The family of this 75-nucleotide sequence from Dichanthelium oligosanthes is "mir-33 microRNA precursor family".
For this family Rfam cites "Direct sequencing and expression analysis of a large number of miRNAs in Aedes aegypti and a multi-species survey of novel mosquito miRNAs" (Li et al., BMC Genomics, 2009).
Rfam links the family to the GO terms gene silencing by miRNA and RISC complex.
Taxonomically the source falls in Dichanthelium (Eukaryota, Viridiplantae, Magnoliopsida, Panicodae).
[Rfam]
RNA sequence: UCUAGGUGCAUUGUAUUUGCUAUGCACCUAGACAUGAUUUAUAUCUAGGUGCAUAGCAAAUACAAUGCAUCUAGA
Numbered sequence: 001u002c003u004a005g006g007u008g009c010a011u012u013g014u015a016u017u018u019g020c021u022a023u024g025c026a027c028c029u030a031g032a033c034a035u036g037a038u039u040u041a042u043a044u045c046u047a048g049g050u051g052c053a054u055a056g057c058a059a060a061u062a063c064a065a066u067g068c069a070u071c072u073a074g075a
Stems, first nucleotide, its partner, number of pairs: 001075004006071001007069010019057001021055010